[Rfam]
RNA sequence: UGCUUGUGAUGAAUAAAAGAAGAAAUAAGAGCAGUGGACAGGAGUGGUUUCUGAGAACAUUUUUACACUGAGGCA
Numbered sequence: 001u002g003c004u005u006g007u008g009a010u011g012a013a014u015a016a017a018a019g020a021a022g023a024a025a026u027a028a029g030a031g032c033a034g035u036g037g038a039c040a041g042g043a044g045u046g047g048u049u050u051c052u053g054a055g056a057a058c059a060u061u062u063u064u065a066c067a068c069u070g071a072g073g074c075a
Stems, first nucleotide, its partner, number of pairs: 001075004
Small nucleolar RNA SNORD75: a 75-nucleotide RNA from Sinocyclocheilus anshuiensis. NCBI's taxonomy places the organism under Eukaryota, Deuterostomia, Gnathostomata, Teleostei, Sinocyclocheilus. Its family is annotated with RNA processing and nucleolus in the Gene Ontology. It scores 57 bits against the family's covariance model. The family's RNA type in Rfam is C/D-box small nucleolar RNA. Pairs were carried over by alignment from the consensus structure, which was predicted with RNAalifold. A reference for the family is Galardi et al. (2002), "Purified box C/D snoRNPs are able to reproduce site-specific 2'-O-methylation of target RNA in vitro", Mol Cell Biol.